RNA sequence: UCCUUAUCUAAUUUUGAUUGUUGCUCAGAAAGCCCUCAUUAAAUAUCAGUUGGCUUUCGAGCUGCAAUUAAAAACAAAUAAGUG
Numbered sequence: 001u002c003c004u005u006a007u008c009u010a011a012u013u014u015u016g017a018u019u020g021u022u023g024c025u026c027a028g029a030a031a032g033c034c035c036u037c038a039u040u041a042a043a044u045a046u047c048a049g050u051u052g053g054c055u056u057u058c059g060a061g062c063u064g065c066a067a068u069u070a071a072a073a074a075c076a077a078a079u080a081a082g083u084g
Base pairs, nucleotide, nucleotide: 001084003082004081005080006079007078012073013072014071015070016069017068018067020065021064023062024061025060026059028058029057030056031055032054033053034052

Shown here is an 84-nucleotide sequence from Musca domestica, a member of the family "mir-315 microRNA precursor family".